The family of this 355-nucleotide RNA from Clostridium sp. CAG:167 is "Bacterial RNase P class A". NCBI's taxonomy places the organism under Bacteria, Bacillati, Clostridia, Clostridiaceae, Clostridium.
RNA sequence: UGAGUAGCACAGGUGAACGCGGCUGUUCAGACGAAAGGGAACAGGUGAGGAAAGUCCGAGCUUCACAGGGCAGGAUGCCGGAUAACGUCCGGUGGAGGUGACUCCCAGGCUAGUGCAACAGAAAUAAACCGCCACAGGAUUUUCCUGUGGUAAGGGUGGAACGGUGAGGUAAGAGCUCACCGCCUUUCUGGUAACAGAAAGGGCAGAUGUAAACCCCAUCCGAAGCAAGACCGAAUAGAGAGCGAUACGGCGGCCCGUCGUGCUUUCGGGUAGGUCGCUUGAGCCUGCCGGCAACGGCAGGAUUAGACAGAUGUUCAUCCAACGACAGAACUCGGCUUAUCGUGUUACUCAUAAU
Dot-bracket structure: ((((((((((((((((((.((.((((((..........)))))).))....[[[.[[[[[((((...[[[[.((((((((((.....)))))(((((....)))).)((...(((((...........(((((((((((...)))))))))..)).......((((((.......))))))(((((((((....)))))))).)...)))..)))))))))))))...((((.....((((((...(((((.]]]]))))))))))).....)))).......(((((((....)))))))...........)))))))...........]]]]]]]].).))))))))))....
Rfam describes the family as follows. Ribonuclease P (RNase P) is a ubiquitous endoribonuclease, found in archaea, bacteria and eukarya as well as chloroplasts and mitochondria.
Pairs were carried over by alignment from the consensus structure, which is taken from published work.
A reference for the family is Frank and Pace (1998), "Ribonuclease P: unity and diversity in a tRNA processing ribozyme", Annu Rev Biochem.
By type it is a ribozyme.